This 147-nucleotide RNA from Camelus dromedarius belongs to the Rfam family "Small nucleolar RNA SNORA12". From the family's description: U108 belongs to the H/ACA family of snoRNAs. The sequence is predicted to guide the pseudouridylation of the U372 residue in the 28S rRNA subunit. However it has not been reported as a pseudouridylation site. Gene Ontology terms of the family: RNA processing and nucleolus. On this family, see Gu et al., Nucleic Acids Res 2005: "A novel experimental approach for systematic identification of box H/ACA snoRNAs from eukaryotes". The family's RNA type in Rfam is H/ACA-box small nucleolar RNA.
RNA sequence: CGUUGUGGUGGUUUUCUUUUUGGCCCACUUGUUAAGUUUUCAAAUGGUCCUGACUCUGCCACAGUUAUACAUAGGAGCUGGCAAAGGCUGAAUGACAAAAAGAUCUCUUUCUAGCCUUUCCCGAAUCAGAGAUUGGCUCCUACAUGU
Numbered sequence: 001c002g003u004u005g006u007g008g009u010g011g012u013u014u015u016c017u018u019u020u021u022g023g024c025c026c027a028c029u030u031g032u033u034a035a036g037u038u039u040u041c042a043a044a045u046g047g048u049c050c051u052g053a054c055u056c057u058g059c060c061a062c063a064g065u066u067a068u069a070c071a072u073a074g075g076a077g078c079u080g081g082c083a084a085a086g087g088c089u090g091a092a093u094g095a096c097a098a099a100a101a102g103a104u105c106u107c108u109u110u111c112u113a114g115c116c117u118u119u120c121c122c123g124a125a126u127c128a129g130a131g132a133u134u135g136g137c138u139c140c141u142a143c144a145u146g147u
Base pairs, nucleotide, nucleotide: 005062006061007060008059009058010057011056022050023049026046027045029043030042031041074140075139076138077137078136079135080089081088082087106132107131108130109129110128